The record is a 97-nucleotide sequence from Sedimentibacter sp. zth1, which matches "Purine riboswitch aptamer" in Rfam.
[Rfam]
RNA sequence: AAAGCAUAAAAUAAAUGUUUAAAUAUAAUCUCUUGUAUAUGGUGAGAGAGUUUCUACCGAGCACCUUAAAUCGACUAUUUAAACGAAAUUAUACUUA
Number, nucleotide and partner (000 for none) at each position: 001a000002a000003a000004g000005c000006a000007u000008a000009a000010a000011a000012u000013a000014a000015a000016u000017g000018u083019u082020u081021a080022a079023a078024u077025a076026u000027a000028a000029u049030c048031u047032c046033u045034u044035g043036u000037a000038u000039a000040u000041g000042g000043u035044g034045a033046g032047a031048g030049a029050g000051u000052u000053u000054c000055u000056a000057c000058c073059g072060a071061g000062c000063a000064c000065c000066u000067u000068a000069a000070a000071u060072c059073g058074a000075c000076u025077a024078u023079u022080u021081a020082a019083a018084c000085g000086a000087a000088a000089u000090u000091a000092u000093a000094c000095u000096u000097a000